Rfam assigns this 202-nucleotide sequence from Medicago truncatula to the family "MIR2670 microRNA precursor family". The base pairs follow the family's consensus structure, which was predicted with RNAalifold. Its family is annotated with RISC complex and miRNA-mediated post-transcriptional gene silencing in the Gene Ontology. The match comes from Rfam's covariance-model search (159 bits). Rfam 15.1 lists 188 matches to the family in 2 species.

[Rfam]
RNA sequence: UUUGGGGGAAAUAGUGGUCUAUUAAGUUGGGAAAAAGACAUCAUCCUUUGAGAUAAAAUUAGGUUUGUUUCCUUUUACUCCUAAAAUCAUUUUACCGUGGUAAAAAGAAUCAAUAUGGGGGUAUAAAAGGAACCAAAUUUAAAUUUAACUCAAGGGGUCUUGAUGUCGUUUUCCUCAACAGGACGGAUUACUUUUUCCCAAG
Dot-bracket structure: ..((((((((..((((((((.((..((((((.(((....(((((((.(((((.((((.(((((((((.(((((((((((((((....(.((((((....)))))).)........))))))))..))))))).))))))))).)))).))))).)))...)))).....))).))))))..)).))))))))))))))))..